About this RNA:
Shown here is a 124-nucleotide sequence from Pantoea ananatis, a member of the family "Phenylalanine leader peptide". The family's consensus secondary structure was predicted with CMfinder. The organism belongs to Pantoea ananatis, within Bacteria.
[Rfam]
RNA sequence: CAUGAAAACACUGUCGUUUUUCUUCGCUUUCUUUUUUACCUUCCCCUGACUGGGAGGCCAUUCGUCGUGUAAAAAGAAAGCGAAGACGAACAACAAAGCCUCCCAACCGGGAGGCUUUUUUAUU
Numbered sequence: 001c002a003u004g005a006a007a008a009c010a011c012u013g014u015c016g017u018u019u020u021u022c023u024u025c026g027c028u029u030u031c032u033u034u035u036u037u038a039c040c041u042u043c044c045c046c047u048g049a050c051u052g053g054g055a056g057g058c059c060a061u062u063c064g065u066c067g068u069g070u071a072a073a074a075a076g077a078a079a080g081c082g083a084a085g086a087c088g089a090a091c092a093a094c095a096a097a098g099c100c101u102c103c104c105a106a107c108c109g110g111g112a113g114g115c116u117u118u119u120u121u122a123u124u
Stems, first nucleotide, its partner, number of pairs: 016091004021086014036072004042055004056066003095118010